[Rfam]
RNA: Fluoride riboswitch aptamer (crcB RNA motif)
RNA sequence: UGAAAAUACAGGGAUGGUGUUCCCUAUAAAUGCUAUUGGUUAAUAGUUGAUGACACCUAUUAGAUA
Numbered sequence: 001u002g003a004a005a006a007u008a009c010a011g012g013g014a015u016g017g018u019g020u021u022c023c024c025u026a027u028a029a030a031u032g033c034u035a036u037u038g039g040u041u042a043a044u045a046g047u048u049g050a051u052g053a054c055a056c057c058u059a060u061u062a063g064a065u066a
Stems, first nucleotide, its partner, number of pairs: 010025004016057006032047006